[Rfam]
RNA sequence: AAACAGCCUCAUAUGUUUUGAUUCUUGGACAGUUUUGGACCCCCAAGGCAAAAAAAAAUAAAAAAAUUGACACGUGACACCUCACUUAGGGUGUCAGUCAGCGUUGACCGAGUCAACAAUGGGCUGGGGGUCCAAAACUGCCAAAGAAUCAAAACAUAGGGGUCUGUUU
Numbered sequence: 001a002a003a004c005a006g007c008c009u010c011a012u013a014u015g016u017u018u019u020g021a022u023u024c025u026u027g028g029a030c031a032g033u034u035u036u037g038g039a040c041c042c043c044c045a046a047g048g049c050a051a052a053a054a055a056a057a058a059u060a061a062a063a064a065a066a067u068u069g070a071c072a073c074g075u076g077a078c079a080c081c082u083c084a085c086u087u088a089g090g091g092u093g094u095c096a097g098u099c100a101g102c103g104u105u106g107a108c109c110g111a112g113u114c115a116a117c118a119a120u121g122g123g124c125u126g127g128g129g130g131u132c133c134a135a136a137a138c139u140g141c142c143a144a145a146g147a148a149u150c151a152a153a154a155c156a157u158a159g160g161g162g163u164c165u166g167u168u169u
Stems, first nucleotide, its partner, number of pairs: 001169002004166003008162001012158015028142001030140016072098002075096007